[Rfam]
RNA sequence: CCUGACAACGGCAAACCGGCGGCGACGCCGGGACGCAAAACCACCGGUCCCCAGAACAGGGGACAGCGGAGUUACCAAGG
Numbered sequence: 001c002c003u004g005a006c007a008a009c010g011g012c013a014a015a016c017c018g019g020c021g022g023c024g025a026c027g028c029c030g031g032g033a034c035g036c037a038a039a040a041c042c043a044c045c046g047g048u049c050c051c052c053a054g055a056a057c058a059g060g061g062g063a064c065a066g067c068g069g070a071g072u073u074a075c076c077a078a079g080g
Base pairs, nucleotide, nucleotide: 001080003077004076011036012035016031017030018029019028020027021026034066039073040072041071044069045068046067047064048063049062

The family of this 80-nucleotide RNA from Emcibacter nanhaiensis is "c-di-GMP-I-GGC riboswitch aptamer". NCBI's taxonomy places the organism under Bacteria, Pseudomonadota, Emcibacterales, Emcibacteraceae, Emcibacter. Pairs were carried over by alignment from the consensus structure, which is taken from published work.